[Rfam]
RNA sequence: AACGGGUUAAGCCACAAACAGGAGGCACCAUGUUCAUCGAUACAGUCGUUCUCGCAGGUAUUGGCACUGUCGGUUUGAUGGUCGCUUUCGUCGGUGCGGUUGGUUAUUUCAUCUGGCAGGACGCUCGCAAACGCGACAGCAAUAAAAGCUGAAUCCUGCCGAUUCAGGGGCACGCAAGGCAACUUGGGGCGACUUUGUCGCCCUUUUUUUUC
Dot-bracket structure: ............................................((.......))................((((....))))......................................................................................((.(....)))......(((((((...))))))).........
Numbered sequence: 001a002a003c004g005g006g007u008u009a010a011g012c013c014a015c016a017a018a019c020a021g022g023a024g025g026c027a028c029c030a031u032g033u034u035c036a037u038c039g040a041u042a043c044a045g046u047c048g049u050u051c052u053c054g055c056a057g058g059u060a061u062u063g064g065c066a067c068u069g070u071c072g073g074u075u076u077g078a079u080g081g082u083c084g085c086u087u088u089c090g091u092c093g094g095u096g097c098g099g100u101u102g103g104u105u106a107u108u109u110c111a112u113c114u115g116g117c118a119g120g121a122c123g124c125u126c127g128c129a130a131a132c133g134c135g136a137c138a139g140c141a142a143u144a145a146a147a148g149c150u151g152a153a154u155c156c157u158g159c160c161g162a163u164u165c166a167g168g169g170g171c172a173c174g175c176a177a178g179g180c181a182a183c184u185u186g187g188g189g190c191g192a193c194u195u196u197g198u199c200g201c202c203c204u205u206u207u208u209u210u211u212c
Stems, first nucleotide, its partner, number of pairs: 045055002072083004170180002173178001187203007

This 212-nucleotide RNA sequence from Pseudomonas sp. TTU2014-080ASC belongs to the Rfam family "PhrS". The family's consensus secondary structure was predicted with CMfinder. Rfam links the family to the GO term quorum sensing. The match comes from Rfam's covariance-model search (131 bits). For this family Rfam cites "Identification of 17 Pseudomonas aeruginosa sRNAs and prediction of sRNA-encoding genes in 10 diverse pathogens using the bioinformatic tool sRNAPredict2" (Livny et al., Nucleic Acids Res, 2006). NCBI's taxonomy places the organism under Bacteria, Pseudomonadati, Pseudomonadota, Pseudomonadaceae, Pseudomonas.